mir-166 microRNA precursor family: a 113-nucleotide RNA from Cynara cardunculus.
A reference for the family is Reinhart et al. (2002), "MicroRNAs in plants", Genes Dev.
This family represents the plant microRNA (miRNA) precursor mir-166.

[Rfam]
RNA sequence: CUUGAGGGGACUGUUGUCUGGCUCGAGGCUACUCAUGAUGAUCUUUACUGUUGAUUGAUUGAUCGAUUAUAGGUGAUUCUGGUGUCGUCGGACCAGGCUUCAUUCCCCUCAAU
Numbered sequence: 001c002u003u004g005a006g007g008g009g010a011c012u013g014u015u016g017u018c019u020g021g022c023u024c025g026a027g028g029c030u031a032c033u034c035a036u037g038a039u040g041a042u043c044u045u046u047a048c049u050g051u052u053g054a055u056u057g058a059u060u061g062a063u064c065g066a067u068u069a070u071a072g073g074u075g076a077u078u079c080u081g082g083u084g085u086c087g088u089c090g091g092a093c094c095a096g097g098c099u100u101c102a103u104u105c106c107c108c109u110c111a112a113u
Stems, first nucleotide, its partner, number of pairs: 002112009012102002016098006024090003